[Rfam]
RNA sequence: GAAAAAGCAGAGUUCUGUUGCAAUUUGACAGAUCUCACGUAUACUUCAGGGAAAUUGAAUUGGUCAUCGUGAUUGGGUGAAUCUAUGUUUAUAUAUCUCAUAACUAUAAGAUUCAGUACAUGAUGGUACAUUG
Numbered sequence: 001g002a003a004a005a006a007g008c009a010g011a012g013u014u015c016u017g018u019u020g021c022a023a024u025u026u027g028a029c030a031g032a033u034c035u036c037a038c039g040u041a042u043a044c045u046u047c048a049g050g051g052a053a054a055u056u057g058a059a060u061u062g063g064u065c066a067u068c069g070u071g072a073u074u075g076g077g078u079g080a081a082u083c084u085a086u087g088u089u090u091a092u093a094u095a096u097c098u099c100a101u102a103a104c105u106a107u108a109a110g111a112u113u114c115a116g117u118a119c120a121u122g123a124u125g126g127u128a129c130a131u132u133g
Stems, first nucleotide, its partner, number of pairs: 005046003011035002014032004063127009078115007

Rfam assigns this 133-nucleotide sequence to the family "Small nucleolar RNA snoR74". The base pairs follow the family's consensus structure, which was predicted with WAR. Rfam 15.1 lists 1,404 matches to the family in 223 species. Gene Ontology terms of the family: nucleolus and RNA processing. Rfam classes the family as an H/ACA-box small nucleolar RNA. The literature on the family includes a 2002 paper in Curr Biol by Marker et al., "Experimental RNomics: identification of 140 candidates for small non-messenger RNAs in the plant Arabidopsis thaliana".